[Rfam]
RNA sequence: UGCGAUGAGUCGAGAGGUCAGGCAGCCGACCCUUGUUUGGCUGCCCCGCGCGAGCGGAAAUGACAUUUCGAGCGGGGCCCGUUAACUUGCCGGAUUGCAAGGGGCCUGGCAAUGGCGAAAGUGGACGUUCGUC
Dot-bracket structure: ................(((((((((((((.......)))))))))((((....))))...))))...........(((((.....(((((......))))))))))........((((..........)))).
Numbered sequence: 001u002g003c004g005a006u007g008a009g010u011c012g013a014g015a016g017g018u019c020a021g022g023c024a025g026c027c028g029a030c031c032c033u034u035g036u037u038u039g040g041c042u043g044c045c046c047c048g049c050g051c052g053a054g055c056g057g058a059a060a061u062g063a064c065a066u067u068u069c070g071a072g073c074g075g076g077g078c079c080c081g082u083u084a085a086c087u088u089g090c091c092g093g094a095u096u097g098c099a100a101g102g103g104g105c106c107u108g109g110c111a112a113u114g115g116c117g118a119a120a121g122u123g124g125a126c127g128u129u130c131g132u133c
Stems, first nucleotide, its partner, number of pairs: 017064004021045009046057004076106005086101005115132004

A member of the RNA family "Enterococcus sRNA 68 (Lacto-3 RNA)" from Limosilactobacillus mucosae, 133 nucleotides long. It is annotated as a small RNA. Rfam's curators put it in the seed alignment. Taxonomically the source falls in Limosilactobacillus mucosae (Bacteria, Bacillati, Bacilli, Lactobacillaceae). A reference for the family is Innocenti et al. (2015), "Whole-genome mapping of 5' RNA ends in bacteria by tagged sequencing: a comprehensive view in Enterococcus faecalis", RNA.